[Rfam]
RNA sequence: UCACACCCGACGACGAACUCAAGACGGCAGGAGUGGGGGACCCAGGUAGGUCGCCGCACCGGACAUCGCACCGGGACGGCUAGGGGUGAAGCCAUGCCCGCAGGGGCACGGCCGGGCACUCUCCCGCCCGAACCCGACAGCUCACCUCGCAGGCGUAGGAGAGGAACCCA
Dot-bracket structure: ..........((.(....((.........)).((((((....(.......................................)(((.....((.(((........))).))..((((........))))...))).........)))))).).))...............
Shown here is a 170-nucleotide sequence, a member of the family "c-di-AMP riboswitch aptamer (ydaO/yuaA leader)". Gene Ontology terms of the family: regulation of gene expression and cyclic-di-AMP binding. The match comes from Rfam's covariance-model search (49 bits).